About this RNA:
Rfam assigns this 52-nucleotide RNA sequence from Rhodobacteraceae bacterium HTCC2150 to the family "ffh sRNA". The source organism's lineage runs through Bacteria, Pseudomonadati, Alphaproteobacteria, Rhodobacterales and Paracoccaceae. The literature on the family includes a 2009 paper in BMC Genomics by Meyer et al., "Identification of candidate structured RNAs in the marine organism 'Candidatus Pelagibacter ubique'".
RNA sequence: GAUGCUUGGGAUCGCCCUCCACCAGCGUGUUACGCCCGUGGGGGCGUUUGUG
Numbered sequence: 001g002a003u004g005c006u007u008g009g010g011a012u013c014g015c016c017c018u019c020c021a022c023c024a025g026c027g028u029g030u031u032a033c034g035c036c037c038g039u040g041g042g043g044g045c046g047u048u049u050g051u052g
Base pairs, nucleotide, nucleotide: 016044017043018042019041020040021039022038025035026034027033028032